RNA sequence: GUGGGGCGCGCCUAGGGUUCCGCCCUUCCGUGAGGCAGGGGACUGGUCCGAGAGGCGCAGGCGGCCCGGUUCGCCGGGCCGCUCCACGGCGGGACAAAAGCCCGGGAGAC
Numbered sequence: 001g002u003g004g005g006g007c008g009c010g011c012c013u014a015g016g017g018u019u020c021c022g023c024c025c026u027u028c029c030g031u032g033a034g035g036c037a038g039g040g041g042a043c044u045g046g047u048c049c050g051a052g053a054g055g056c057g058c059a060g061g062c063g064g065c066c067c068g069g070u071u072c073g074c075c076g077g078g079c080c081g082c083u084c085c086a087c088g089g090c091g092g093g094a095c096a097a098a099a100g101c102c103c104g105g106g107a108g109a110c
Stems, first nucleotide, its partner, number of pairs: 008058005015049002020046002022043001023040004028035001060083008085105001087108001091103003